Shown here is an 84-nucleotide RNA sequence from Eptatretus burgeri, a member of the family "mir-218 microRNA precursor family". Taxonomically the source falls in Eptatretus (Eukaryota, Metazoa, Craniata, Myxinidae). On this family, see Chen et al., Genes Dev 2005: "The developmental miRNA profiles of zebrafish as determined by small RNA cloning". It scores 77 bits against the family's covariance model. Gene Ontology terms of the family: RISC complex and miRNA-mediated post-transcriptional gene silencing. The family has 74 seed sequences and 1,392 matches in Rfam 15.1.
[Rfam]
Nucleotides: 084
Stems, first nucleotide, its partner, number of pairs: 001084005007078003013072007024061008
Number, partner (000 for none) and nucleotide at each position: 001084c002083g003082g004081c005080u006000u007078u008077c009076c010000c011000u012000u013072g014071u015070g016069c017068u018067u019066g020000a021000u022000c023000u024061a025060a026059c027058c028057a029056u030055g031054u032000g033000c034000u035000u036000g037000c038000u039000c040000c041000g042000a043000a044000c045000g046000c047000g048000a049000a050000a051000a052000c053000a054031a055030c056029a057028u058027g059026g060025u061024u062000c063000c064000u065000u066019c067018a068017a069016g070015c071014a072013c073000c074000a075000g076009g077008g078007a079000c080005g081004g082003c083002c084001g